RNA: Alphaproteobacteria transfer-messenger RNA
Organism: Novosphingobium aromaticivorans
RNA sequence: CCCCUUUUCAUUUGGCGCGCGCUCCCUAUAUGGGGUCGUGCCGGUUCAGGCCGGCUAUGGUGAUAAACUGCGGCGUGCAAUAGGCACAGCGGACCCGGGGGCGGUACCCGGCGGCUCCACCAUCACCACCGGCUGCAAAAGGUCGGGCCUUGUUGUCGCAAGGGUGUUGAUGGGGCCGAACUAGGAUCGACGUGUGUUGAAAAGCGUUGUUUUCACCCGGGCUGAGUAACCCGUUCAAGGCUCAAAACUCACAAGUGCCAACGACAACGAAGCACUUGCUCUCGCGGCGUAAUUCUAGGGGCUAACGCCCUGAAGUUACUAAGUUAGAGCACGGUUCGGACCGAACCGGGUAACAGAAUCGGAAACC
Numbered sequence: 001c002c003c004c005u006u007u008u009c010a011u012u013u014g015g016c017g018c019g020c021g022c023u024c025c026c027u028a029u030a031u032g033g034g035g036u037c038g039u040g041c042c043g044g045u046u047c048a049g050g051c052c053g054g055c056u057a058u059g060g061u062g063a064u065a066a067a068c069u070g071c072g073g074c075g076u077g078c079a080a081u082a083g084g085c086a087c088a089g090c091g092g093a094c095c096c097g098g099g100g101g102c103g104g105u106a107c108c109c110g111g112c113g114g115c116u117c118c119a120c121c122a123u124c125a126c127c128a129c130c131g132g133c134u135g136c137a138a139a140a141g142g143u144c145g146g147g148c149c150u151u152g153u154u155g156u157c158g159c160a161a162g163g164g165u166g167u168u169g170a171u172g173g174g175g176c177c178g179a180a181c182u183a184g185g186a187u188c189g190a191c192g193u194g195u196g197u198u199g200a201a202a203a204g205c206g207u208u209g210u211u212u213u214c215a216c217c218c219g220g221g222c223u224g225a226g227u228a229a230c231c232c233g234u235u236c237a238a239g240g241c242u243c244a245a246a247a248c249u250c251a252c253a254a255g256u257g258c259c260a261a262c263g264a265c266a267a268c269g270a271a272g273c274a275c276u277u278g279c280u281c282u283c284g285c286g287g288c289g290u291a292a293u294u295c296u297a298g299g300g301g302c303u304a305a306c307g308c309c310c311u312g313a314a315g316u317u318a319c320u321a322a323g324u325u326a327g328a329g330c331a332c333g334g335u336u337c338g339g340a341c342c343g344a345a346c347c348g349g350g351u352a353a354c355a356g357a358a359u360c361g362g363a364a365a366c367c
Stems, first nucleotide, its partner, number of pairs: 040055005059217005070210007085196003089193003095111005112178007218233004223244003227240001332348004341362003